Rfam assigns this 91-nucleotide sequence from Anguilla anguilla to the family "mir-7 microRNA precursor family". Rfam's curators write: This family represents the microRNA (miRNA) precursor mir-7. It scores 64 bits against the family's covariance model. Its family is annotated with RISC complex and miRNA-mediated post-transcriptional gene silencing in the Gene Ontology. Taxonomically the source falls in Anguilla (Eukaryota, Bilateria, Teleostomi, Elopocephalai). The family's consensus secondary structure was predicted with PFOLD. The family has 132 seed sequences and 2,589 matches in Rfam 15.1.
RNA sequence: UGCCCGAGCUGCUGAAUGGAAGACUAGUGAUUUUGUUGUGUGACUGAACAGAGAUGACAACAAAUCCCAGUCUGCCCUCCGGCAUGGGGCU
Dot-bracket structure: .((((....(.(((.(.((.(((((.(.(((((.(((((.................)))))))))).)))))).)).).))).)..)))).